[Rfam]
RNA sequence: GGUUGAAAAAGGCAAACUUAGCGAAAGCUGGGGACGCAAAACUUCCGGUCUAAGGUAUUCCUAGUGAAAAUACUAAGAUAGCGGGGUUACCAGU
Dot-bracket structure: ...........((...((((((....))))))...))..((((.((((((....((((...........))))...)))..)))))))......
Numbered sequence: 001g002g003u004u005g006a007a008a009a010a011g012g013c014a015a016a017c018u019u020a021g022c023g024a025a026a027g028c029u030g031g032g033g034a035c036g037c038a039a040a041a042c043u044u045c046c047g048g049u050c051u052a053a054g055g056u057a058u059u060c061c062u063a064g065u066g067a068a069a070a071u072a073c074u075a076a077g078a079u080a081g082c083g084g085g086g087u088u089a090c091c092a093g094u
Stems, first nucleotide, its partner, number of pairs: 012037002017032006040088004045084003048079003055073004